[Rfam]
Rfam assigns this 114-nucleotide RNA from Ipomoea nil to the family "U5 spliceosomal RNA". The family's consensus secondary structure is taken from published work. The match comes from Rfam's covariance-model search (77 bits).
RNA sequence: AGCCAUGCAGUGAACACAAAGCGAACUAUUCUUUUGCCUUUUACUAAAGAAUACCGUGUGUGCAUUGCAAUGAAUGGCAUACUUAAAUUUCUAAAGAAUACCGUGUGUGCAUUG
Number, nucleotide and partner (000 for none) at each position: 001a000002g000003c077004c076005a075006u074007g000008c067009a066010g065011u064012g063013a000014a061015c060016a059017c058018a057019a000020a000021g000022c000023g000024a000025a000026c000027u053028a052029u051030u050031c049032u048033u047034u046035u000036g000037c000038c000039u000040u000041u000042u000043a000044c000045u000046a034047a033048a032049g031050a030051a029052u028053a027054c000055c000056g000057u018058g017059u016060g015061u014062g000063c012064a011065u010066u009067g008068c000069a000070a000071u000072g000073a000074a006075u005076g004077g003078c000079a000080u000081a000082c000083u000084u000085a000086a000087a000088u000089u000090u000091c000092u000093a000094a000095a000096g000097a113098a112099u111100a000101c109102c000103g000104u000105g000106u000107g000108u000109g101110c000111a099112u098113u097114g000